[Rfam]
RNA: SAM riboswitch aptamer (S box leader)
Organism: Sporosarcina sp. P19
RNA sequence: CUCUUAUAAAGAGCGGUGGAGGGAAGUGCCCUAUGAAGCCCGGCAACCGUCACGUUUGUGAAAUGGUGCCAAUUCACUCAAAGCCUAACGCUUUGAUAGAUGAGAG
Numbered sequence: 001c002u003c004u005u006a007u008a009a010a011g012a013g014c015g016g017u018g019g020a021g022g023g024a025a026g027u028g029c030c031c032u033a034u035g036a037a038g039c040c041c042g043g044c045a046a047c048c049g050u051c052a053c054g055u056u057u058g059u060g061a062a063a064u065g066g067u068g069c070c071a072a073u074u075c076a077c078u079c080a081a082a083g084c085c086u087a088a089c090g091c092u093u094u095g096a097u098a099g100a101u102g103a104g105a106g
Stems, first nucleotide, its partner, number of pairs: 001106007013041001015040003021031003025078004042070004047066002050061003074098001079095006